[Rfam]
RNA: Ribosomal protein L20 leader
Organism: Alteribacter lacisalsi
Nucleotides: 125
Base pairs, nucleotide, nucleotide: 011026012025013024014023015022016021028058029057030056036051037050038049039047040046090112091111092110093109094108095107096106097105098104099103
Number, partner (000 for none) and nucleotide at each position: 001000c002000a003000a004000a005000g006000c007000a008000a009000g010000c011026a012025g013024a014023a015022g016021c017000g018000c019000c020000c021016g022015c023014u024013u025012c026011u027000c028058a029057c030056c031000u032000g033000a034000u035000u036051g037050a038049c039047g040046c041000u042000a043000u044000a045000g046040g047039c048000a049038g050037u051036u052000g053000a054000c055000a056030g057029g058028u059000u060000u061000u062000g063000a064000c065000g066000u067000a068000u069000u070000c071000u072000a073000a074000c075000g076000a077000u078000g079000u080000a081000c082000u083000u084000c085000a086000g087000a088000a089000g090112u091111g092110u093109g094108g095107g096106c097105g098104u099103a100000u101000u102000a103099u104098g105097c106096g107095c108094u109093c110092a111091u112090g113000c114000u115000u116000u117000u118000u119000u120000u121000g122000u123000g124000c125000a